[Rfam]
RNA sequence: UAUUUAGAUUACCUCCGAGCUUGGGAACCUGUGAUAUUAGGUUAUGGUUCUCUAGCCGAUAGGGUUCACCUGGAAACGGGUGUGCCUCCCGUGUGGAAAGGAUGGUAGGUUUAUUAAAC
Numbered sequence: 001u002a003u004u005u006a007g008a009u010u011a012c013c014u015c016c017g018a019g020c021u022u023g024g025g026a027a028c029c030u031g032u033g034a035u036a037u038u039a040g041g042u043u044a045u046g047g048u049u050c051u052c053u054a055g056c057c058g059a060u061a062g063g064g065u066u067c068a069c070c071u072g073g074a075a076a077c078g079g080g081u082g083u084g085c086c087u088c089c090c091g092u093g094u095g096g097a098a099a100g101g102a103u104g105g106u107a108g109g110u111u112u113a114u115u116a117a118a119c
Base pairs, nucleotide, nucleotide: 003113006110012104014102015101016100019056020055021054023052024051025050026049027048028047029046033043034042035041062087063086064085065084067082068081069080070079071078072077088096089095
Dot-bracket structure: ..(..(.....(.(((..(((.(((((((...(((.....)))..))))))).))).....((((.((((((....)))))).))))((.....))...))).).....)..)......
This 119-nucleotide RNA sequence from Desulforamulus ferrireducens belongs to the Rfam family "Molybdenum/Tungsten riboswitch aptamer (Moco RNA motif)". Taxonomically the source falls in Desulforamulus (Bacteria, Bacillati, Eubacteriales, Peptococcaceae). The family's consensus secondary structure is taken from published work. It scores 74 bits against the family's covariance model. Rfam links the family to the GO terms molybdenum ion binding, tungstate binding and regulation of gene expression.